[Rfam]
RNA sequence: UAUAAAUUACACAUGAUUACUCAUAUAAUCCUGAUAAUAUGGUUCGGGAGUAUCUACCAAAGGGCCGAUAACCCUUUGACUAUGAGUGAGGUAGCUUUGCAU
Number, nucleotide and partner (000 for none) at each position: 001u000002a000003u000004a000005a000006a000007u000008u000009a000010c000011a000012c000013a000014u000015g000016a000017u000018u088019a087020c086021u085022c084023a083024u082025a081026u000027a000028a000029u049030c048031c047032u046033g045034a044035u000036a000037a000038u000039a000040u000041g000042g000043u000044u034045c033046g032047g031048g030049a029050g000051u000052a000053u000054c000055u000056a000057c000058c078059a077060a076061a075062g074063g073064g072065c000066c000067g000068a000069u000070a000071a000072c064073c063074c062075u061076u060077u059078g058079a000080c000081u025082a024083u023084g022085a021086g020087u019088g018089a000090g000091g000092u000093a000094g000095c000096u000097u000098u000099g000100c000101a000102u000
A member of the RNA family "Purine riboswitch aptamer" from Fervidicella metallireducens, 102 nucleotides long.